[Rfam]
RNA sequence: UUUGCAUUAAUGAGGGCUACACAAAAAAUCUUUCCAAGGAUUUGUGUAGAUCUGAUGUUUGAAAA
Numbered sequence: 001u002u003u004g005c006a007u008u009a010a011u012g013a014g015g016g017c018u019a020c021a022c023a024a025a026a027a028a029u030c031u032u033u034c035c036a037a038g039g040a041u042u043u044g045u046g047u048a049g050a051u052c053u054g055a056u057g058u059u060u061g062a063a064a065a
Stems, first nucleotide, its partner, number of pairs: 001065003005061001015052002017049008030038003
Notes: This 65-nucleotide sequence from Chinchilla lanigera belongs to the Rfam family "Selenocysteine insertion sequence 1". Its family is annotated with selenocysteine incorporation in the Gene Ontology. Pairs were carried over by alignment from the consensus structure, which is taken from published work. It is annotated as a cis-regulatory element.